[Rfam]
Small nucleolar RNA R38: a 70-nucleotide sequence from Coregonus sp. 'balchen'. The match comes from Rfam's covariance-model search (51 bits). Rfam 15.1 lists 2,295 matches to the family in 1,305 species. Rfam links the family to the GO terms RNA processing and nucleolus. About the family: snoR38 is a C/D box small nucleolar RNA conserved across yeast, human, Arabidopsis and rice. It is encoded in the intron of elongation factor-1 gamma in both pombe and cerevisiae. snoR38 guides the methylation of 2'-O-ribose sites in 28S rRNA. Lineage of the source: Eukaryota > Bilateria > Actinopteri > Salmoniformes > Coregonus.
RNA sequence: AAAAGCCUGUGAUGAAACAAGUUAUCCAUGUCUGAACAGCAGUGUGGAUUUAUGGUAAUCUGAGGCUUGA
Numbered sequence: 001a002a003a004a005g006c007c008u009g010u011g012a013u014g015a016a017a018c019a020a021g022u023u024a025u026c027c028a029u030g031u032c033u034g035a036a037c038a039g040c041a042g043u044g045u046g047g048a049u050u051u052a053u054g055g056u057a058a059u060c061u062g063a064g065g066c067u068u069g070a
Stems, first nucleotide, its partner, number of pairs: 003068005